[Rfam]
RNA sequence: AGGACAGGGGGGUCUUCGCCGAACGGCGGGGCCUGUCCGAGCGGUUGCGUGCAGGCGCGACCAGUGGUUGUCGCUCGGGGGUGAUCGUCA
Numbered sequence: 001a002g003g004a005c006a007g008g009g010g011g012g013u014c015u016u017c018g019c020c021g022a023a024c025g026g027c028g029g030g031g032c033c034u035g036u037c038c039g040a041g042c043g044g045u046u047g048c049g050u051g052c053a054g055g056c057g058c059g060a061c062c063a064g065u066g067g068u069u070g071u072c073g074c075u076c077g078g079g080g081g082u083g084a085u086c087g088u089c090a
Stems, first nucleotide, its partner, number of pairs: 002038007014031007043062008